[Rfam]
RNA sequence: AAAGCUGUGUGUCUAUGAUGUAUUUGUAUGUCUGACUCAACCAUGAGGUCAACAAACAGUUCGUCACUACCACUGAGACCACAGAUUU
Numbered sequence: 001a002a003a004g005c006u007g008u009g010u011g012u013c014u015a016u017g018a019u020g021u022a023u024u025u026g027u028a029u030g031u032c033u034g035a036c037u038c039a040a041c042c043a044u045g046a047g048g049u050c051a052a053c054a055a056a057c058a059g060u061u062c063g064u065c066a067c068u069a070c071c072a073c074u075g076a077g078a079c080c081a082c083a084g085a086u087u088u
Stems, first nucleotide, its partner, number of pairs: 001088003005084005011079003